RNA sequence: ACUCCCAAAGAUCGCCACCAGUCAGCGAGUAUCGCCCACUGGUGCAUUUUGC
Number, nucleotide and partner (000 for none) at each position: 001a000002c000003u000004c000005c000006c000007a000008a000009a000010g000011a000012u000013c000014g000015c000016c044017a043018c042019c041020a040021g039022u038023c000024a000025g035026c034027g033028a032029g000030u000031a000032u028033c027034g026035c025036c000037c000038a022039c021040u020041g019042g018043u017044g016045c000046a000047u000048u000049u000050u000051g000052c000

Rfam assigns this 52-nucleotide RNA sequence from Paramylibacter kogurei to the family "ffh sRNA". The literature on the family includes a 2009 paper in BMC Genomics by Meyer et al., "Identification of candidate structured RNAs in the marine organism 'Candidatus Pelagibacter ubique'". Pairs were carried over by alignment from the consensus structure, which is taken from published work. The family's RNA type in Rfam is small RNA.